Rfam assigns this 77-nucleotide RNA from Salix brachista to the family "Small nucleolar RNA SNORD18". Gene Ontology terms of the family: RNA processing and nucleolus. The match comes from Rfam's covariance-model search (52 bits). The family's consensus secondary structure was predicted with PFOLD.

[Rfam]
RNA sequence: GAGAUAUGAUGAAAUAAACCUCUGGUCCGUGUUUCUGACUUAACCGUGACAGAUAUUUUUUACCAAUUUCUGAUCUC
Numbered sequence: 001g002a003g004a005u006a007u008g009a010u011g012a013a014a015u016a017a018a019c020c021u022c023u024g025g026u027c028c029g030u031g032u033u034u035c036u037g038a039c040u041u042a043a044c045c046g047u048g049a050c051a052g053a054u055a056u057u058u059u060u061u062a063c064c065a066a067u068u069u070c071u072g073a074u075c076u077c
Base pairs, nucleotide, nucleotide: 001077002076003075004074
It is annotated as a C/D-box small nucleolar RNA.
The source organism's lineage runs through Eukaryota, Pentapetalae, fabids, Malpighiales and Salix.
A reference for the family is Prislei et al. (1993), "Two different snoRNAs are encoded in introns of amphibian and human L1 ribosomal protein genes", Nucleic Acids Res.